Burkholderia sRNA 7: a 160-nucleotide RNA sequence from Burkholderia pseudomallei. Rfam's curators put it in the seed alignment. From the family's description: Did not show any change in expression in iron-depletion and hydrogen peroxide (oxidative stress) treatment. Constitutively expressed. Possibly targets the GTPase, ObgE. NCBI's taxonomy places the organism under Bacteria, Betaproteobacteria, Burkholderiales, Burkholderiaceae, Burkholderia pseudomallei. The family's RNA type in Rfam is small RNA.

RNA sequence: UUAUGCUUGCGCACAUGAACCGCUUCCAGUCCGCUCUCCGACGUCGCCGCUCGCCGCUCCGCACGGAUGCCGCCGGCUCGUCACGGACUCGCGCGUAACCGCUUCCCCGUUACGCAAAAGCUGUUCGAACCAUCAAGCCACGGCGCCCCGUGGCUUUUUU
Number, nucleotide and partner (000 for none) at each position: 001u000002u000003a000004u000005g130006c000007u128008u127009g000010c095011g094012c093013a000014c091015a000016u000017g000018a000019a000020c000021c000022g000023c000024u000025u000026c000027c000028a000029g000030u000031c086032c085033g084034c000035u000036c000037u000038c000039c080040g079041a078042c000043g077044u076045c075046g073047c072048c000049g070050c069051u000052c000053g000054c065055c000056g000057c000058u000059c000060c000061g000062c000063a000064c000065g054066g000067a000068u000069g050070c049071c000072g047073c046074c000075g045076g044077c043078u041079c040080g039081u000082c000083a000084c033085g032086g031087a000088c000089u000090c000091g014092c000093g012094c011095g010096u000097a000098a000099c000100c000101g000102c000103u000104u000105c000106c000107c000108c000109g000110u000111u000112a000113c000114g000115c000116a000117a000118a000119a000120g000121c000122u000123g000124u000125u000126c000127g008128a007129a000130c005131c000132a000133u000134c000135a156136a155137g154138c153139c152140a151141c150142g149143g148144c000145g000146c000147c000148c143149c142150g141151u140152g139153g138154c137155u136156u135157u000158u000159u000160u000